[Rfam]
Nucleotides: 141
Stems, first nucleotide, its partner, number of pairs: 020052005026047003034042002085117003089112002092109005130141004
Number, partner (000 for none) and nucleotide at each position: 001000a002000g003000u004000u005000u006000u007000g008000c009000g010000c011000a012000g013000u014000g015000g016000c017000g018000a019000u020052a021051c022050c023049a024048u025000a026047g027046c028045c029000a030000a031000u032000g033000a034042g035041g036000u037000u038000u039000a040000u041035c042034c043000g044000a045028g046027g047026c048024g049023u050022g051021g052020u053000u054000a055000u056000u057000g058000c059000u060000a061000g062000u063000u064000g065000a066000a067000a068000a069000c070000u071000a072000u073000a074000c075000c076000c077000a078000a079000u080000a081000c082000c083000c084000u085117g086116c087115g088000c089112c090111g091000a092109c093108g094107c095106c096105c097000u098000g099000a100000a101000u102000u103000a104000u105096g106095g107094g108093c109092g110000g111090c112089g113000a114000g115087c116086g117085c118000a119000a120000u121000u122000u123000a124000u125000g126000c127000a128000c129000g130141u131140c132139c133138u134000c135000a136000c137000g138133g139132g140131g141130a